A member of the RNA family "Editing element of GABA-3 exon 9" from Eptatretus burgeri, 54 nucleotides long. The family's RNA type in Rfam is cis-regulatory element. The family has 52 seed sequences and 4,208 matches in Rfam 15.1.
RNA sequence: AAGGUAGCAUAUGCAACUGCCAUGGACUGGUUCAUUGCAGUGUGCAAUGCUUUC
Numbered sequence: 001a002a003g004g005u006a007g008c009a010u011a012u013g014c015a016a017c018u019g020c021c022a023u024g025g026a027c028u029g030g031u032u033c034a035u036u037g038c039a040g041u042g043u044g045c046a047a048u049g050c051u052u053u054c
Base pairs, nucleotide, nucleotide: 002053003052006051007050008049010047013045014044016041017040018039019038020037022035023034024033025032026031
Dot-bracket structure: .((..(((.(..((.(((((.(((((....))))).)))))..)).).))))).